[Rfam]
RNA: Ascomycota telomerase RNA, nucleotides 214 to 428
Nucleotides: 215
Stems, first nucleotide, its partner, number of pairs: 009198003015194004
Number, partner (000 for none) and nucleotide at each position: 001000u002000c003000c004000c005000c006000c007000a008000c009198a010197g011196u012000u013000c014000u015194c016193c017192g018191a019000u020000u021000c022000c023000a024000g025000u026000u027000u028000u029000c030000c031000g032000a033000a034000a035000g036000g037000a038000a039000u040000g041000c042000c043000c044000u045000c046000g047000u048000g049000g050000c051000c052000g053000c054000u055000a056000c057000c058000u059000u060000u061000g062000a063000a064000c065000u066000g067000g068000a069000c070000a071000a072000c073000c074000a075000c076000a077000g078000u079000g080000c081000g082000u083000c084000g085000u086000a087000g088000c089000u090000u091000g092000g093000a094000u095000c096000c097000u098000g099000u100000a101000u102000c103000a104000g105000g106000u107000g108000c109000c110000u111000a112000c113000c114000a115000a116000g117000c118000u119000u120000g121000c122000c123000g124000c125000g126000g127000u128000u129000g130000g131000a132000u133000g134000a135000c136000u137000g138000u139000g140000g141000u142000c143000g144000a145000u146000u147000c148000c149000u150000g151000u152000c153000a154000c155000c156000c157000c158000a159000g160000a161000c162000a163000g164000g165000c166000c167000a168000g169000u170000u171000u172000c173000u174000c175000g176000g177000g178000u179000g180000g181000u182000g183000a184000a185000u186000u187000g188000g189000u190000c191018u192017c193016g194015g195000a196011a197010c198009u199000u200000a201000a202000c203000c204000c205000u206000a207000a208000u209000c210000a211000u212000u213000c214000c215000u